[Rfam]
RNA sequence: CUAGUUUAGCAAUAUCUGCCGAAGACAGUAGGUGCCGUAAGGCAUAAGGUGAGAACGCCUACCGAGGGAAUAAAUUUUUAUGAGUUUAAGAAAUUUAUGGAAUCCCUUACUGUUCGGCAGUGAGGGAUUUUUUUUGAAAAU
Number, nucleotide and partner (000 for none) at each position: 001c000002u000003a000004g000005u000006u000007u000008a000009g000010c000011a000012a000013u000014a000015u000016c000017u000018g000019c000020c000021g000022a000023a000024g000025a000026c000027a000028g062029u061030a060031g059032g058033u057034g043035c042036c041037g000038u000039a000040a000041g036042g035043c034044a000045u000046a000047a000048g000049g000050u000051g000052a000053g000054a000055a000056c000057g033058c032059c031060u030061a029062c028063c000064g000065a000066g000067g000068g000069a000070a000071u000072a000073a000074a000075u000076u000077u000078u000079u000080a000081u000082g000083a000084g000085u000086u000087u000088a000089a000090g000091a000092a000093a000094u000095u000096u000097a000098u000099g000100g000101a000102a000103u127104c126105c125106c124107u123108u122109a121110c120111u119112g118113u000114u000115c000116g000117g000118c112119a111120g110121u109122g108123a107124g106125g105126g104127a103128u000129u000130u000131u000132u000133u000134u000135u000136g000137a000138a000139a000140a000141u000
The record is a 141-nucleotide sequence from Anaerocolumna xylanovorans, which matches "Ribosomal protein L10 leader" in Rfam. It scores 85 bits against the family's covariance model. It is annotated as a cis-regulatory leader.